[Rfam]
RNA sequence: UUAUUGGAUGUUUUGGAUAUUUUACUGUUUUGCCACUCUCUGACAGAGAACAAUUUGUUCUUUGACAGAGAGUGACAAGACAUUUCAAUAGCUUAAGCGUCCAAUAAC
Numbered sequence: 001u002u003a004u005u006g007g008a009u010g011u012u013u014u015g016g017a018u019a020u021u022u023u024a025c026u027g028u029u030u031u032g033c034c035a036c037u038c039u040c041u042g043a044c045a046g047a048g049a050a051c052a053a054u055u056u057g058u059u060c061u062u063u064g065a066c067a068g069a070g071a072g073u074g075a076c077a078a079g080a081c082a083u084u085u086c087a088a089u090a091g092c093u094u095a096a097g098c099g100u101c102c103a104a105u106a107a108c
Base pairs, nucleotide, nucleotide: 001107002106003105004104005103006102011097012096013095015093016092018090019089020088021087024084026082027081028080029069030068031067032066034064035063049059050058051057052056
Rfam assigns this 108-nucleotide RNA sequence from Plutella xylostella to the family "mir-8517 microRNA precursor family". The organism belongs to Plutella, within Eukaryota.